[Rfam]
RNA sequence: GGUAUUGUUUUAUAUCACCACCACGAUAAGCCCCGGAAUCUUAUUGUGUUUUAAGAUAUAGAAGCAGGAA
Numbered sequence: 001g002g003u004a005u006u007g008u009u010u011u012a013u014a015u016c017a018c019c020a021c022c023a024c025g026a027u028a029a030g031c032c033c034c035g036g037a038a039u040c041u042u043a044u045u046g047u048g049u050u051u052u053a054a055g056a057u058a059u060a061g062a063a064g065c066a067g068g069a070a
Base pairs, nucleotide, nucleotide: 006066007065008064009063010062011061022048023047024046025045026044027043028042029041030040
Shown here is a 70-nucleotide RNA sequence from Mammaliicoccus stepanovicii, a member of the family "Ribosomal protein L13 leader". It scores 55 bits against the family's covariance model. Gene Ontology term of the family: regulation of gene expression. This family is a putative r-protein leader autoregulatory structure found in B. subtilis and other low-GC Gram-positive bacteria. It is located in the 5' untranslated regions of mRNAs encoding the L13-S9 (rplM-rpsI) ribosomal protein operon. Lineage of the source: Bacteria > Bacillati > Bacilli > Staphylococcaceae > Mammaliicoccus.